[Rfam]
RNA sequence: AGAGGUCCUCUGUGGCCGGGGUGGAACACUUGCCUUGUCGCCAUGGCGACGAAGUAAGCAUUCUGCCAGGCUGCUCACACUGCCCAC
Numbered sequence: 001a002g003a004g005g006u007c008c009u010c011u012g013u014g015g016c017c018g019g020g021g022u023g024g025a026a027c028a029c030u031u032g033c034c035u036u037g038u039c040g041c042c043a044u045g046g047c048g049a050c051g052a053a054g055u056a057a058g059c060a061u062u063c064u065g066c067c068a069g070g071c072u073g074c075u076c077a078c079a080c081u082g083c084c085c086a087c
Base pairs, nucleotide, nucleotide: 004084005083006082012074013073014072015071016070017069020067021066022065023064024063025062026061029058030057031056032055033054037050038049039048040047041046
Rfam assigns this 87-nucleotide sequence from Myotis brandtii to the family "mir-9195 microRNA precursor family". It scores 91 bits against the family's covariance model. Gene Ontology terms of the family: miRNA-mediated post-transcriptional gene silencing and RISC complex.